Source information
Streptococcus sRNA SpF59 (ldcC RNA): a 52-nucleotide RNA sequence. Rfam classes the family as a small RNA.

Nucleotides: 052
Stems, first nucleotide, its partner, number of pairs: 001044005006019005
Number, partner (000 for none) and nucleotide at each position: 001044g002043g003042a004041u005040c006019a007018c008017u009016c010015c011000a012000u013000u014000u015010g016009g017008g018007g019006u020000u021000a022000a023000g024000g025000c026000c027000a028000u029000a030000c031000g032000g033000a034000c035000a036000g037000c038000c039000g040005g041004g042003u043002c044001c045000a046000c047000u048000g049000c050000c051000g052000c